The family of this 99-nucleotide sequence from Ruminococcaceae bacterium FB2012 is "THF (Tetrahydrofolate) riboswitch aptamer". The literature on the family includes a 2010 paper in Chem Biol by Ames et al., "A eubacterial riboswitch class that senses the coenzyme tetrahydrofolate". Lineage of the source: Bacteria > Bacillati > Bacillota > Eubacteriales > Oscillospiraceae.
[Rfam]
RNA sequence: AUAAGAGUAGAAGUCUGUGCGUUAAGUGCCCGAAGGACGGGGAGUUGCUUUCGGGACGAAAAGAUGAUUCUUGCGAUACAGCUUUCGCAUCCCGCUUAG
Numbered sequence: 001a002u003a004a005g006a007g008u009a010g011a012a013g014u015c016u017g018u019g020c021g022u023u024a025a026g027u028g029c030c031c032g033a034a035g036g037a038c039g040g041g042g043a044g045u046u047g048c049u050u051u052c053g054g055g056a057c058g059a060a061a062a063g064a065u066g067a068u069u070c071u072u073g074c075g076a077u078a079c080a081g082c083u084u085u086c087g088c089a090u091c092c093c094g095c096u097u098a099g
Stems, first nucleotide, its partner, number of pairs: 002098004010086004015081005020075003026057002029055008040092003044088001061072004